[Rfam]
RNA: Plastid-rpl20 3UTR RNA
Organism: Aegilops tauschii
RNA sequence: GAUGAAUUCCCGGAGAGGGAACUCCGGGAAGAUACAAUAAAUUAAGAUUAAGUGGUAGGAAUCAACGAGUUGGAUU
Dot-bracket structure: ......(((((((((......)))))))))................................(((....)))....